[Rfam]
RNA sequence: UGAGCAUCGAUGAUGAGUUAGCUUUCUUGUUAUCCUUGCACAUUGACUGCUAGUGAUGAAAACCAACGGGGAAAGUUAUAAUCUGAGAUGCC
Numbered sequence: 001u002g003a004g005c006a007u008c009g010a011u012g013a014u015g016a017g018u019u020a021g022c023u024u025u026c027u028u029g030u031u032a033u034c035c036u037u038g039c040a041c042a043u044u045g046a047c048u049g050c051u052a053g054u055g056a057u058g059a060a061a062a063c064c065a066a067c068g069g070g071g072a073a074a075g076u077u078a079u080a081a082u083c084u085g086a087g088a089u090g091c092c
Base pairs, nucleotide, nucleotide: 004091005090006089007088008087

Shown here is a 92-nucleotide sequence from Carnegiea gigantea, a member of the family "Small nucleolar RNA snoR26".
Rfam classes the family as a C/D-box small nucleolar RNA.
A search with the family's covariance model found it, with a score of 66 bits.
Taxonomically the source falls in Carnegiea (Eukaryota, Embryophyta, Magnoliopsida, Cactoideae).